L31-Gammaproteobacteria ribosomal protein leader: a 53-nucleotide sequence. The sequence is in the family's curated seed alignment. The family is grouped with related families in Rfam's "Ribosomal Protein L31 Leader clan".

[Rfam]
RNA sequence: CGUAUGGUGUUUAAGCUUUAGAGCUUAAAUGGCGAUACGGCCGAAAUAAAGGU
Numbered sequence: 001c002g003u004a005u006g007g008u009g010u011u012u013a014a015g016c017u018u019u020a021g022a023g024c025u026u027a028a029a030u031g032g033c034g035a036u037a038c039g040g041c042c043g044a045a046a047u048a049a050a051g052g053u
Stems, first nucleotide, its partner, number of pairs: 001039005007033002011028006